[Rfam]
RNA sequence: GGGUGCGGCGGGUCGUCCGCCGCAGGUCUCCACGGCUGGUCGGGCCGCCCGCCG
Numbered sequence: 001g002g003g004u005g006c007g008g009c010g011g012g013u014c015g016u017c018c019g020c021c022g023c024a025g026g027u028c029u030c031c032a033c034g035g036c037u038g039g040u041c042g043g044g045c046c047g048c049c050c051g052c053c054g
Stems, first nucleotide, its partner, number of pairs: 005023007033054004038049003
RNA: nhaA-I RNA